[Rfam]
Nucleotides: 179
Stems, first nucleotide, its partner, number of pairs: 006174006016079004021074004032064007083115011116142002120138007144164007
Number, partner (000 for none) and nucleotide at each position: 001000u002000u003000c004000a005000a006174u007173a008172a009171u010170a011169g012000a013000g014000g015000u016079g017078c018077g019076a020000u021074a022073u023072u024071u025000a026000u027000u028000a029000g030000u031000a032064u033063u034062a035061u036060a037059a038058c039000u040000g041000a042000g043000u044000u045000a046000a047000g048000c049000a050000a051000c052000u053000u054000u055000g056000a057000c058038g059037u060036u061035a062034u063033g064032a065000g066000a067000a068000a069000g070000g071024a072023a073022a074021u075000u076019u077018c078017g079016c080000c081000g082000a083115a084114a085113u086112g087111u088110a089109u090108g091107a092106c093105u094000g095000a096000u097000a098000g099000c100000u101000u102000u103000a104000a105093g106092g107091u108090c109089a110088u111087a112086u113085g114084u115083u116142g117141g118000g119000a120138c121137u122136a123135u124134a125133c126132a127000g128000a129000a130000u131000a132126u133125g134124u135123a136122u137121g138120g139000g140000a141117c142116u143000g144164u145163c146162a147161c148160a149159a150158a151000g152000u153000u154000u155000u156000u157000c158150u159149u160148u161147g162146u163145g164144g165000a166000g167000g168000g169011c170010u171009a172008u173007u174006g175000u176000u177000g178000g179000a

The record is a 179-nucleotide RNA from Anaeromicrobium sediminis, which matches "Lysine riboswitch aptamer" in Rfam. Gene Ontology term of the family: lysine biosynthetic process. Rfam's curators write: Riboswitches are metabolite binding domains within certain messenger RNAs that serve as precision sensors for their corresponding targets. Allosteric rearrangement of mRNA structure is mediated by ligand binding, and this results in modulation of gene expression. This family includes riboswitches that sense lysine in a number of genes involved in lysine metabolism, including lysC.